[Rfam]
RNA: Small nucleolar RNA Z159/U59
Organism: Rosa chinensis
RNA sequence: UAUUUUGAUGAUGUUUAAAAAAUACUUUUGUUUUUCCAAGAUGUUCCAUGCAGAAACUAUUUGGAUAGCUGAACUAUAAAGGC
Numbered sequence: 001u002a003u004u005u006u007g008a009u010g011a012u013g014u015u016u017a018a019a020a021a022a023u024a025c026u027u028u029u030g031u032u033u034u035u036c037c038a039a040g041a042u043g044u045u046c047c048a049u050g051c052a053g054a055a056a057c058u059a060u061u062u063g064g065a066u067a068g069c070u071g072a073a074c075u076a077u078a079a080a081g082g083c
Stems, first nucleotide, its partner, number of pairs: 003081004